[Rfam]
RNA sequence: GAGCCGGGACGACCCGGUUCGCGACGGGCCACAAUGCCGGGACGACCCGG
Number, nucleotide and partner (000 for none) at each position: 001g020002a019003g018004c017005c016006g015007g014008g013009a000010c000011g000012a000013c008014c007015c006016g005017g004018u003019u002020c001021g000022c000023g000024a000025c000026g000027g000028g000029c000030c000031a000032c000033a000034a000035u000036g000037c050038c049039g048040g047041g046042a000043c000044g000045a000046c041047c040048c039049g038050g037